Rfam assigns this 58-nucleotide RNA from Diachasma alloeum to the family "Plastid-psbA-2 3UTR RNA".
About the family: Plastid psbA-2 is a non-coding RNA (ncRNA) present in plastids.
The family's RNA type in Rfam is cis-regulatory element.
Pairs were carried over by alignment from the consensus structure, which was predicted with LocARNA.
[Rfam]
RNA sequence: UUUAGGGAGCAACAAACCCUAGGAAUUAAUUCCUAGGGUUUGUUGCUCCCUAAAUUUC
Numbered sequence: 001u002u003u004a005g006g007g008a009g010c011a012a013c014a015a016a017c018c019c020u021a022g023g024a025a026u027u028a029a030u031u032c033c034u035a036g037g038g039u040u041u042g043u044u045g046c047u048c049c050c051u052a053a054a055u056u057u058c
Stems, first nucleotide, its partner, number of pairs: 001054024